[Rfam]
Vertebrate telomerase RNA: a 340-nucleotide RNA from Conger conger. The base pairs follow the family's consensus structure, which is taken from published work. It scores 92 bits against the family's covariance model. Its family is annotated with telomerase activity, telomere maintenance via telomerase and telomerase catalytic core complex in the Gene Ontology. On this family, see Antal et al., Nucleic Acids Res 2002: "Analysis of the structure of human telomerase RNA in vivo". Telomerase is a ribonucleoprotein reverse transcriptase that synthesises telomeric DNA. Telomerase RNAs differ greatly in sequence and structure between vertebrates, ciliates and yeasts, but they share a 5' pseudoknot structure close to the template sequence. Vertebrate telomerase RNAs have a 3' H/ACA snoRNA-like domain. The family's RNA type in Rfam is non-coding RNA gene.
RNA sequence: AGGCUGGCAGAGUAACAUUCUAACCCUAACUCUUUGUACUUCUCGUAGGCAUGGUUACUGUUUUGUUCCUAGCUUUCAGGAACCUCACGGGAAGUUUUGGGCGUUCUGACGGAAUCCGCGUUAAAAAAAAAGUCUAGAGGCUUACUCUGCCAAACUCAGUGUCCCGGUGAGGUGUGCCAUGGCCGCGGACAGCUCGGCUGCCGCUAAGAGUUCGUCUCUGAGGCCGGGUUACUGCUUCCCGGGUAGCUAAUGCAAAUCUGAGCAGAUGAAACUGAACGCGGCGGUACUAUUUGCGAAUCCUUUCUCAUGGACCCGCAAGAAAGCCCGCGUUCAAACAAAU
Numbered sequence: 001a002g003g004c005u006g007g008c009a010g011a012g013u014a015a016c017a018u019u020c021u022a023a024c025c026c027u028a029a030c031u032c033u034u035u036g037u038a039c040u041u042c043u044c045g046u047a048g049g050c051a052u053g054g055u056u057a058c059u060g061u062u063u064u065g066u067u068c069c070u071a072g073c074u075u076u077c078a079g080g081a082a083c084c085u086c087a088c089g090g091g092a093a094g095u096u097u098u099g100g101g102c103g104u105u106c107u108g109a110c111g112g113a114a115u116c117c118g119c120g121u122u123a124a125a126a127a128a129a130a131a132g133u134c135u136a137g138a139g140g141c142u143u144a145c146u147c148u149g150c151c152a153a154a155c156u157c158a159g160u161g162u163c164c165c166g167g168u169g170a171g172g173u174g175u176g177c178c179a180u181g182g183c184c185g186c187g188g189a190c191a192g193c194u195c196g197g198c199u200g201c202c203g204c205u206a207a208g209a210g211u212u213c214g215u216c217u218c219u220g221a222g223g224c225c226g227g228g229u230u231a232c233u234g235c236u237u238c239c240c241g242g243g244u245a246g247c248u249a250a251u252g253c254a255a256a257u258c259u260g261a262g263c264a265g266a267u268g269a270a271a272c273u274g275a276a277c278g279c280g281g282c283g284g285u286a287c288u289a290u291u292u293g294c295g296a297a298u299c300c301u302u303u304c305u306c307a308u309g310g311a312c313c314c315g316c317a318a319g320a321a322a323g324c325c326c327g328c329g330u331u332c333a334a335a336c337a338a339a340u
Base pairs, nucleotide, nucleotide: 005152006151007150008149009148010147011146012145013144014143015142038095039094040093041092042091053084054083055082056081058079059078060077069137070136072133073132074130075129076128155262156261157260158259159258163243164242165241166240167239169238170237171236172235173234176229177228178227185204186203187202188201190200191199192198193197207219208218209217210216274332275331276330277329280325281324282323291318292317293316294315295314298311299310300309